[Rfam]
RNA sequence: UUGUAUUAUCCUGCAUCGCCCGAUCAACGAUGGCUCAACAGUAUAAUGCACCAACUUAAUAUCAACAGCUGCCUUGUGAGCAGGCCGCUGCAAUCCGGAACGGAGUAAUUCCGUCAGGACUGCGGUUCUUUCAUUGCGCCUUUUUGCAGCUGUACC
Numbered sequence: 001u002u003g004u005a006u007u008a009u010c011c012u013g014c015a016u017c018g019c020c021c022g023a024u025c026a027a028c029g030a031u032g033g034c035u036c037a038a039c040a041g042u043a044u045a046a047u048g049c050a051c052c053a054a055c056u057u058a059a060u061a062u063c064a065a066c067a068g069c070u071g072c073c074u075u076g077u078g079a080g081c082a083g084g085c086c087g088c089u090g091c092a093a094u095c096c097g098g099a100a101c102g103g104a105g106u107a108a109u110u111c112c113g114u115c116a117g118g119a120c121u122g123c124g125g126u127u128c129u130u131u132c133a134u135u136g137c138g139c140c141u142u143u144u145u146g147c148a149g150c151u152g153u154a155c156c
Stems, first nucleotide, its partner, number of pairs: 001050001003049003007045003011041003014032005033081005066152007087126005100114005

Description: Shown here is a 156-nucleotide RNA sequence, a member of the family "DUF2800 RNA". It is annotated as a cis-regulatory element. Pairs were carried over by alignment from the consensus structure, which is taken from published work.